The record is a 142-nucleotide RNA from Corchorus olitorius, which matches "MIR828 microRNA precursor family" in Rfam. On this family, see Rajagopalan et al., Genes Dev 2006: "A diverse and evolutionarily fluid set of microRNAs in Arabidopsis thaliana". Rfam links the family to the GO terms RISC complex and miRNA-mediated post-transcriptional gene silencing. The match comes from Rfam's covariance-model search (95 bits).
RNA sequence: GUAAUGUUUCUUGCUCAAAUGAGUAUUCCAAUCACAGUUGCAUUUGGAUGUAUAUCAGUUCAAUAUAUAUGCAUAGUAUAUAUAUGUAUUGGGCUGAUGAUGCUUCUGUUUCUGAGAUGCUCAUUUGAGCAAGCAAUGUUAU
Dot-bracket structure: ...(((((.((((((((((((((((((.((..................................................................................)).)))))))))))))))))).)))))...